[Rfam]
RNA: narK RNA
Nucleotides: 070
Stems, first nucleotide, its partner, number of pairs: 030049007
Number, partner (000 for none) and nucleotide at each position: 001000g002000g003000c004000a005000a006000a007000g008000a009000g010000c011000u012000u013000g014000c015000u016000a017000c018000g019000u020000c021000c022000u023000g024000c025000a026000u027000g028000a029000c030049g031048g032047u033046a034045g035044c036043c037000a038000a039000c040000g041000g042000c043036g044035g045034u046033u047032a048031c049030c050000c051000a052000u053000c054000c055000c056000c057000g058000a059000c060000a061000a062000a063000g064000a065000c066000g067000u068000c069000g070000c